[Rfam]
RNA sequence: AAUUAUGUUCAUAUGAACAAAGGGAAGCAGAUCUAUUCUAUAUCUGAUAAGUACCAAUACGCAAUGGAA
Numbered sequence: 001a002a003u004u005a006u007g008u009u010c011a012u013a014u015g016a017a018c019a020a021a022g023g024g025a026a027g028c029a030g031a032u033c034u035a036u037u038c039u040a041u042a043u044c045u046g047a048u049a050a051g052u053a054c055c056a057a058u059a060c061g062c063a064a065u066g067g068a069a
Base pairs, nucleotide, nucleotide: 003022004021006019007018008017009016010015043068044067045066051060052059053058
Plastid-clpP 5UTR RNA: a 69-nucleotide RNA from Carex littledalei. On this family, see Richter et al., Plant Commun 2023: "Retrograde signaling in plants: A critical review focusing on the GUN pathway and beyond". By type it is a cis-regulatory element. The source organism's lineage runs through Eukaryota, Embryophyta, Petrosaviidae, Cyperoideae and Carex subgen. Euthyceras. The family's consensus secondary structure was predicted with LocARNA. From the family's description: Plastid clpP is a non-coding RNA (ncRNA) recognised in plastids.